[Rfam]
RNA sequence: GUGGUUUUAGUUUAAUUGAAAAACGUUUGCUUUGCAAGCAAAAGUUCUAAGUUAAAGUCUUAGAAGCUACA
Dot-bracket structure: (((((((..((((.......)))).(((((.......)))))....(((((.......)))))))))))).